Source information:
A member of the RNA family "Selenocysteine transfer RNA" from Pseudoduganella lurida, 92 nucleotides long. A reference for the family is Mizutani and Goto (2000), "Eukaryotic selenocysteine tRNA has the 9/4 secondary structure", FEBS Lett.
RNA sequence: GGAAGGCAUUCUCAUCCGGUGAUGGGGCCGGGCUUCAAACCCGGUGAGGGGCGUCAGACGCUCCUCUGUAAGUUCGACUCUUUCUGCCUUCC
Dot-bracket structure: ((((((((..((((((....))))))((((((.......)))))).(((((.........)))))....(((.......)))..))))))))